[Rfam]
RNA: mir-2774 microRNA precursor family
Organism: Bombyx mori
RNA sequence: ACAACAUUCGGACUGUCCGUCUACCGAACAAUAACAUCCGCUCGGUGGAAGAUCUUCCCUUUGUCGU
Numbered sequence: 001a002c003a004a005c006a007u008u009c010g011g012a013c014u015g016u017c018c019g020u021c022u023a024c025c026g027a028a029c030a031a032u033a034a035c036a037u038c039c040g041c042u043c044g045g046u047g048g049a050a051g052a053u054c055u056u057c058c059c060u061u062u063g064u065c066g067u
Base pairs, nucleotide, nucleotide: 004064005063006062010058011057012056015053016052017051020049021048022047023046024045025044026043027042029040